[Rfam]
A member of the RNA family "Small nucleolar RNA SNORA71" from Atractosteus spatula, 128 nucleotides long. The family's consensus secondary structure was predicted with PFOLD. The literature on the family includes a 1997 paper in Genes Dev by Ganot et al., "The family of box ACA small nucleolar RNAs is defined by an evolutionarily conserved secondary structure and ubiquitous sequence elements essential for RNA accumulation". Rfam describes the family as follows. The members of this family belong to the H/ACA class of snoRNAs which bind a number of proteins (including dyskerin, Gar1p and Nop10p) to form snoRNP complexes. This class of snoRNAs are thought to guide the sites of modification of uridines to pseudouridines by forming direct base pairing interactions with substrate RNAs. This family includes U71 (SNORA71), ACA39 (SNORA39) and ACA60 (SNORA60). U71 and ACA60 are predicted to guide the pseudouridylation of U406 and U1004 in 18S rRNA respectively. There is currently no target RNA identified for ACA39. Gene Ontology terms of the family: RNA processing and nucleolus.
Nucleotides: 128
Base pairs, nucleotide, nucleotide: 001057002056003055004054005053006052007051008050013045014044015043016042017041018040019039020038022037023036024035025034067124068123069122070121071120072119083111084110085109086108087107089104090103091102092101
Number, partner (000 for none) and nucleotide at each position: 001057c002056c003055c004054u005053g006052u007051a008050u009000c010000g011000a012000a013045a014044g015043u016042g017041a018040c019039u020038g021000u022037g023036g024035u025034a026000u027000g028000c029000a030000c031000u032000g033000u034025u035024g036023c037022c038020u039019g040018g041017u042016c043015a044014u045013u046000g047000a048000u049000a050008g051007u052006a053005c054004a055003g056002g057001g058000a059000g060000a061000g062000a063000g064000a065000a066000c067124u068123g069122a070121a071120a072119g073000u074000c075000u076000u077000u078000c079000c080000c081000g082000u083111g084110u085109u086108u087107g088000a089104a090103g091102g092101g093000a094000a095000c096000g097000c098000u099000g100000u101092c102091c103090c104089u105000a106000u107087c108086a109085a110084a111083c112000c113000c114000u115000g116000u117000a118000c119072c120071u121070u122069u123068c124067a125000g126000a127000c128000a